[Rfam]
Shown here is an 87-nucleotide RNA sequence from Zingiber officinale, a member of the family "Small nucleolar RNA Z102/R77". The match comes from Rfam's covariance-model search (74 bits). The family has 9 seed sequences and 1,346 matches in Rfam 15.1. By type it is a C/D-box small nucleolar RNA. Lineage of the source: Eukaryota > Streptophyta > Streptophytina > Euphyllophyta > Zingiber. The base pairs follow the family's consensus structure, which was predicted with PFOLD.

RNA sequence: GAGAGAUGAUGAUGAAUUAUUUAGUUUACCUAUUGGUUUCACAGCCGAUAUGAUGGUUACAAUUGUAUUAGCUCUAUCUGAACUCUU
Numbered sequence: 001g002a003g004a005g006a007u008g009a010u011g012a013u014g015a016a017u018u019a020u021u022u023a024g025u026u027u028a029c030c031u032a033u034u035g036g037u038u039u040c041a042c043a044g045c046c047g048a049u050a051u052g053a054u055g056g057u058u059a060c061a062a063u064u065g066u067a068u069u070a071g072c073u074c075u076a077u078c079u080g081a082a083c084u085c086u087u
Stems, first nucleotide, its partner, number of pairs: 002086004043058004